The family of this 134-nucleotide RNA from Ipomoea nil is "Small nucleolar RNA snoR136".
[Rfam]
RNA sequence: AUGGCUUUGAAUCUGUUGUUUUCACAGUUCGUGCUUCGUUGUAUAGUGCAGAGCUGCGUUGAUCAAAGCUAGAUGAUGUUCCCCUCGCUAUCCAGAGCUUUUGUUGAGCUUUUGGACGUCGGGGAACCACAUUA
Numbered sequence: 001a002u003g004g005c006u007u008u009g010a011a012u013c014u015g016u017u018g019u020u021u022u023c024a025c026a027g028u029u030c031g032u033g034c035u036u037c038g039u040u041g042u043a044u045a046g047u048g049c050a051g052a053g054c055u056g057c058g059u060u061g062a063u064c065a066a067a068g069c070u071a072g073a074u075g076a077u078g079u080u081c082c083c084c085u086c087g088c089u090a091u092c093c094a095g096a097g098c099u100u101u102u103g104u105u106g107a108g109c110u111u112u113u114g115g116a117c118g119u120c121g122g123g124g125a126a127c128c129a130c131a132u133u134a
Base pairs, nucleotide, nucleotide: 002072003070004069005068008065009064010063013061016058025056026055027054028053029052030051033049034048078127079126080125081124082123083122084121086118087117091116092115093114094113095112
Description
Lineage of the source: Eukaryota > Viridiplantae > Euphyllophyta > Spermatophyta > Ipomoea. Rfam classes the family as an H/ACA-box small nucleolar RNA. Rfam 15.1 lists 452 matches to the family in 212 species. On this family, see Chen and Wu, Nucleic Acids Res 2009: "Mining small RNA sequencing data: a new approach to identify small nucleolar RNAs in Arabidopsis". Its family is annotated with nucleolus and RNA processing in the Gene Ontology.